A member of the RNA family "c-di-AMP riboswitch aptamer (ydaO/yuaA leader)" from Actinomadura coerulea, 132 nucleotides long. A search with the family's covariance model found it, with a score of 90 bits. The source organism's lineage runs through Bacteria, Bacillati, Actinomycetes, Streptosporangiales and Actinomadura.
[Rfam]
RNA sequence: GCGGCCGGGACGCCGAAUCUCCCGCGGGAGAACCGGGGACCCACCACCCUCGGGGUGAAUCGACGCUCGUCGUAGGGCGACUCCUGGCCCAAACCCGUCAGCUAACCCGGUAGGCGUACGAGGAGAGGAGAG
Numbered sequence: 001g002c003g004g005c006c007g008g009g010a011c012g013c014c015g016a017a018u019c020u021c022c023c024g025c026g027g028g029a030g031a032a033c034c035g036g037g038g039a040c041c042c043a044c045c046a047c048c049c050u051c052g053g054g055g056u057g058a059a060u061c062g063a064c065g066c067u068c069g070u071c072g073u074a075g076g077g078c079g080a081c082u083c084c085u086g087g088c089c090c091a092a093a094c095c096c097g098u099c100a101g102c103u104a105a106c107c108c109g110g111u112a113g114g115c116g117u118a119c120g121a122g123g124a125g126a127g128g129a130g131a132g
Stems, first nucleotide, its partner, number of pairs: 011116004018031003032111006042052001053096003061072004075090004